This 175-nucleotide sequence from Streptomyces acidiscabies belongs to the Rfam family "c-di-AMP riboswitch aptamer (ydaO/yuaA leader)".
[Rfam]
RNA sequence: CGCAGUCCGGAGCCGAACACAUCCACCAACGAAACGGCAGGAGCGGGGGACCCACAGGCAGUUCCGCCUGGUCCGGUCUUCCCGGAGCAGGCUUGGGGUAAAGCGGUGCCUCGGCGCCGCCGGACAUCUCCUGUCCGCACCCGACAGCUCACCUCGUAGGCGCAGGAGAGGAAAU
Dot-bracket structure: (....(((...............................)))((((((....((.......................................))(((.....((((........))))..((((.......))))...))).........)))))).)................
The base pairs follow the family's consensus structure.